[Rfam]
RNA sequence: AAUGAGAGAAUGACAAAUCAGAUUUUUCCUCCUAAUUUUUAGCUUUUUCCCCAUGAUAAAAUUCAAAUCCAACUAAAAAUAUUUAAAAUAAGGAGAAAAAAUCUGAUUUGUUAUUCUUUCAUU
Dot-bracket structure: (((((((((((((((((((((((((((.(((((.(((((.((..((((...........................))))..)).))))).))))).)))))))))))))))))))))))))))

The record is a 123-nucleotide RNA from Gossypium barbadense, which matches "MIR7504 microRNA precursor family" in Rfam. Pairs were carried over by alignment from the consensus structure, which was predicted with RNAalifold. Rfam links the family to the GO terms miRNA-mediated post-transcriptional gene silencing and RISC complex. Rfam 15.1 lists 7,343 matches to the family in 61 species. A search with the family's covariance model found it, with a score of 116 bits.